Bacterial RNase P class A: a 338-nucleotide RNA from Salegentibacter flavus. A search with the family's covariance model found it, with a score of 203 bits.
RNA sequence: AAAGCAGGCCGCCUUAUCGCUGUUCCUUUAGAGGGAUGGAGGAAAGUCCGGACACCACAGGGCAGCAUAGUGGGUAACGCCCACCGGUUCCGUCCCGAUAGCUAUCGGGUUAGGGAUUAGGACAAGUGCAGCAGAAAGGAUGUACAGGUAAUGCUGUAGUGAAAUCAGGUAAACUCUAUGCGGUGCAAUGCCAUGUAAACCGGUGCUUGCAGACGGCCCGUCUGCUACCGGAGGGUAGGCAGCUCAAGGUUUUUGGUAACAAAAACUUCAGAUAAAUGAUAAGGGGAGUCUGAUUUUUUCAGGCUUUACAGAAUCCGGCUUACAGGCCUGCUUUAUUU
Number, nucleotide and partner (000 for none) at each position: 001a334002a333003a332004g331005c330006a329007g328008g327009c326010c325011g323012c284013c283014u282015u281016a280017u279018c278019g000020c039021u038022g037023u036024u035025c034026c033027u032028u000029u000030a000031g000032a027033g026034g025035g024036a023037u022038g021039g020040a000041g000042g000043a000044a321045a320046g319047u000048c318049c317050g316051g315052a314053c185054a184055c183056c182057a000058c000059a000060g219061g218062g217063c216064a000065g181066c180067a179068u178069a177070g084071u083072g082073g081074g080075u000076a000077a000078c000079g000080c074081c073082c072083a071084c070085c120086g118087g117088u116089u115090c114091c113092g000093u000094c000095c000096c000097g000098a000099u000100a000101g000102c000103u000104a000105u000106c000107g000108g000109g000110u000111u000112a000113g091114g090115g089116a088117u087118u086119a000120g085121g176122a175123c000124a000125a000126g174127u173128g170129c169130a000131g000132c000133a000134g000135a000136a000137a000138g000139g000140a000141u000142g000143u000144a000145c000146a000147g000148g000149u000150a000151a000152u000153g000154c000155u000156g000157u000158a000159g000160u000161g000162a000163a000164a000165u000166c000167a000168g000169g129170u128171a000172a000173a127174c126175u122176c121177u069178a068179u067180g066181c065182g056183g055184u054185g053186c000187a000188a000189u241190g240191c239192c238193a000194u000195g000196u000197a000198a000199a000200c231201c230202g229203g228204u227205g000206c000207u000208u000209g000210c224211a223212g222213a221214c220215g000216g063217c062218c061219c060220g214221u213222c212223u211224g210225c000226u000227a204228c203229c202230g201231g200232a000233g000234g000235g000236u000237a000238g192239g191240c190241a189242g000243c000244u000245c000246a000247a000248g267249g266250u265251u264252u263253u262254u261255g260256g000257u000258a000259a000260c255261a254262a253263a252264a251265a250266c249267u248268u000269c000270a000271g000272a000273u000274a000275a000276a000277u000278g018279a017280u016281a015282a014283g013284g012285g000286g000287a000288g000289u000290c000291u000292g000293a000294u000295u000296u000297u000298u000299u000300c000301a000302g000303g000304c000305u000306u000307u000308a000309c000310a000311g000312a000313a000314u052315c051316c050317g049318g048319c046320u045321u044322a000323c011324a000325g010326g009327c008328c007329u006330g005331c004332u003333u002334u001335a000336u000337u000338u000